The family of this 535-nucleotide part of an RNA from Podilymbus podiceps is "Eukaryotic large subunit ribosomal RNA".
The base pairs follow the family's consensus structure, which is taken from published work.
It scores 3228 bits against the family's covariance model.
Taxonomically the source falls in Podilymbus (Eukaryota, Tetrapoda, Archelosauria, Saurischia).
[Rfam]
RNA sequence: UAGAAUAAAGUAGAUAAGGGAAGUCGGCAAAAUAGAUCCGUAACUUCGGGAAAAGGAUUGGCUCUGAGGGCUGGGUGCAUUGCGCCCCUGUUGCCUUUAUUAGACGGAGCUUAGGACUGCUCCAUGCUUUGCGGCGUGUUGCGGAUCUGAGCACUGUCUGUACUGUGCACAGGGGAAAAGGUUUGGAUUCGCUUUUCCCCUCACGGGGAGAGGUGGGGUCCUUACUGUGCGUGCACGGUGAACAGCUAACUCAGAACUGGAGCGGACAAGGGGAAUCCGACUGUUUAAUUAAAACAAAGCAUCGCGAAGGCCCGCGGCGGGUGUUGACGCGAUGUGAUUUCUGCCCAGUGCUCUGAAUGUCAAUGUGAUGAAAUUCAAUCAAGCGCGGGUAAACGGCGGGAGUAACUAUGACUCUCUUAAGGUAGCCAAAUGCCUCGUCAUCUAAUUAGUGACGCGCAUGAAUGGAUGAACGAGAUUCCCACUGUCCCUAUCUACUAUCUAGCGAAACCACAGCCAAGGGAACGGGCUUGGCAGA
Numbered sequence: 001u002a003g004a005a006u007a008a009a010g011u012a013g014a015u016a017a018g019g020g021a022a023g024u025c026g027g028c029a030a031a032a033u034a035g036a037u038c039c040g041u042a043a044c045u046u047c048g049g050g051a052a053a054a055g056g057a058u059u060g061g062c063u064c065u066g067a068g069g070g071c072u073g074g075g076u077g078c079a080u081u082g083c084g085c086c087c088c089u090g091u092u093g094c095c096u097u098u099a100u101u102a103g104a105c106g107g108a109g110c111u112u113a114g115g116a117c118u119g120c121u122c123c124a125u126g127c128u129u130u131g132c133g134g135c136g137u138g139u140u141g142c143g144g145a146u147c148u149g150a151g152c153a154c155u156g157u158c159u160g161u162a163c164u165g166u167g168c169a170c171a172g173g174g175g176a177a178a179a180g181g182u183u184u185g186g187a188u189u190c191g192c193u194u195u196u197c198c199c200c201u202c203a204c205g206g207g208g209a210g211a212g213g214u215g216g217g218g219u220c221c222u223u224a225c226u227g228u229g230c231g232u233g234c235a236c237g238g239u240g241a242a243c244a245g246c247u248a249a250c251u252c253a254g255a256a257c258u259g260g261a262g263c264g265g266a267c268a269a270g271g272g273g274a275a276u277c278c279g280a281c282u283g284u285u286u287a288a289u290u291a292a293a294a295c296a297a298a299g300c301a302u303c304g305c306g307a308a309g310g311c312c313c314g315c316g317g318c319g320g321g322u323g324u325u326g327a328c329g330c331g332a333u334g335u336g337a338u339u340u341c342u343g344c345c346c347a348g349u350g351c352u353c354u355g356a357a358u359g360u361c362a363a364u365g366u367g368a369u370g371a372a373a374u375u376c377a378a379u380c381a382a383g384c385g386c387g388g389g390u391a392a393a394c395g396g397c398g399g400g401a402g403u404a405a406c407u408a409u410g411a412c413u414c415u416c417u418u419a420a421g422g423u424a425g426c427c428a429a430a431u432g433c434c435u436c437g438u439c440a441u442c443u444a445a446u447u448a449g450u451g452a453c454g455c456g457c458a459u460g461a462a463u464g465g466a467u468g469a470a471c472g473a474g475a476u477u478c479c480c481a482c483u484g485u486c487c488c489u490a491u492c493u494a495c496u497a498u499c500u501a502g503c504g505a506a507a508c509c510a511c512a513g514c515c516a517a518g519g520g521a522a523c524g525g526g527c528u529u530g531g532c533a534g535a
Stems, first nucleotide, its partner, number of pairs: 001501004009496008018487003035059005044049001060258002063255006069247005075236005081231004085175007097165001100162001101160007109152007117144004123138006259263001271480007278472002282296003299335008308324001310322004339466003343397003348394002350390004355386001358385003366377003398416006417421001437453005514531005